[Rfam]
RNA sequence: GUCUGGACAAAGGUUAGCCCCCGUUAUGUUGCCUGGUAAAUACCAAACAGCGUUCGGGGGUUUUCU
Numbered sequence: 001g002u003c004u005g006g007a008c009a010a011a012g013g014u015u016a017g018c019c020c021c022c023g024u025u026a027u028g029u030u031g032c033c034u035g036g037u038a039a040a041u042a043c044c045a046a047a048c049a050g051c052g053u054u055c056g057g058g059g060g061u062u063u064u065c066u
Stems, first nucleotide, its partner, number of pairs: 016062008027052005034045003
RNA: rdlD antitoxin
Organism: [Enterobacter] lignolyticus